Alphaproteobacterial sRNA ar35: a 139-nucleotide RNA from Rhizobium album. By type it is a small RNA. The base pairs follow the family's consensus structure. The family has 13 seed sequences and 266 matches in Rfam 15.1. A reference for the family is del Val et al. (2012), "A survey of sRNA families in alpha-proteobacteria", RNA Biol.

[Rfam]
RNA sequence: GUCGGCAUUGCUGACGAGCGCUGGAACCAUCUGCCGCUCGCAACGCCGGACUUGCUUUAGACUUUGACCACGGAUGUACUGGCAGGGACGAAUAGCGGAUGAGGAAGGUCGGUGCGGUUUCGCCCCGGCCUUUUUUGUU
Numbered sequence: 001g002u003c004g005g006c007a008u009u010g011c012u013g014a015c016g017a018g019c020g021c022u023g024g025a026a027c028c029a030u031c032u033g034c035c036g037c038u039c040g041c042a043a044c045g046c047c048g049g050a051c052u053u054g055c056u057u058u059a060g061a062c063u064u065u066g067a068c069c070a071c072g073g074a075u076g077u078a079c080u081g082g083c084a085g086g087g088a089c090g091a092a093u094a095g096c097g098g099a100u101g102a103g104g105a106a107g108g109u110c111g112g113u114g115c116g117g118u119u120u121c122g123c124c125c126c127g128g129c130c131u132u133u134u135u136u137g138u139u
Base pairs, nucleotide, nucleotide: 003048004047005046006045008043009042016039017038018037019036020035051098053097054096055095056094062086063085065084066083068082069081070080099138100137101136102135103134104133105132106131107130108129109128110127111126112125114123115122116121